Background: This 86-nucleotide RNA sequence from Chlorella sorokiniana belongs to the Rfam family "Selenocysteine transfer RNA".

RNA sequence: GCCGGCGUGACCCCAGGUGGCCCUGGGCGCGGACUUCAAAUCCGUGGGGGCUUAACGGCCCAGAGGUUCGAUUCCUCCCUGCCGGC
Numbered sequence: 001g002c003c004g005g006c007g008u009g010a011c012c013c014c015a016g017g018u019g020g021c022c023c024u025g026g027g028c029g030c031g032g033a034c035u036u037c038a039a040a041u042c043c044g045u046g047g048g049g050g051c052u053u054a055a056c057g058g059c060c061c062a063g064a065g066g067u068u069c070g071a072u073u074c075c076u077c078c079c080u081g082c083c084g085g086c
Base pairs, nucleotide, nucleotide: 001086002085003084004083005082006081007080009078012027013026014025015024016023017022028046029045030044031043032042033041048061049060050059051058052057063077064076065075066074
The organism belongs to Chlorella, within Eukaryota.